Shown here is a 71-nucleotide sequence from Lederbergia lenta, a member of the family "Listeria sRNA sbrA". A reference for the family is Toledo-Arana et al. (2009), "The Listeria transcriptional landscape from saprophytism to virulence", Nature. The family's RNA type in Rfam is small RNA. Lineage of the source: Bacteria > Bacillota > Caryophanales > Bacillaceae > Lederbergia. The family's consensus secondary structure was predicted with WAR.
[Rfam]
RNA sequence: AUACAUCUAGAUCCAUACCCCUAAACUCCCUAGAUGCCUUUGGACAGCUUUUCACAAGCUGUCCUUUUUUU
Numbered sequence: 001a002u003a004c005a006u007c008u009a010g011a012u013c014c015a016u017a018c019c020c021c022u023a024a025a026c027u028c029c030c031u032a033g034a035u036g037c038c039u040u041u042g043g044a045c046a047g048c049u050u051u052u053c054a055c056a057a058g059c060u061g062u063c064c065u066u067u068u069u070u071u
Stems, first nucleotide, its partner, number of pairs: 004036006042064009